[Rfam]
RNA: Alphaproteobacterial sRNA BjrC1505
Organism: Pleomorphomonas diazotrophica
RNA sequence: AUUCAUUGUUAAGGGCCUGUUUACCAGUUUCGUUUAUCAAGACGGUGAUCCCUCUUUUGGAUCACGAGUGGCUCCUGUCACUCUUUUGACGCCUCCCUGUUCAACUUAGGAAGGGCCGCCCCUGGCGGCCUUCUUUUU
Numbered sequence: 001a002u003u004c005a006u007u008g009u010u011a012a013g014g015g016c017c018u019g020u021u022u023a024c025c026a027g028u029u030u031c032g033u034u035u036a037u038c039a040a041g042a043c044g045g046u047g048a049u050c051c052c053u054c055u056u057u058u059g060g061a062u063c064a065c066g067a068g069u070g071g072c073u074c075c076u077g078u079c080a081c082u083c084u085u086u087u088g089a090c091g092c093c094u095c096c097c098u099g100u101u102c103a104a105c106u107u108a109g110g111a112a113g114g115g116c117c118g119c120c121c122c123u124g125g126c127g128g129c130c131u132u133c134u135u136u137u138u
Base pairs, nucleotide, nucleotide: 003042004041006015007014021036023034025032048062049061050060051059066083067082068081069080070079088101089100090099091098112132113131114130115129116128117127118126119125120124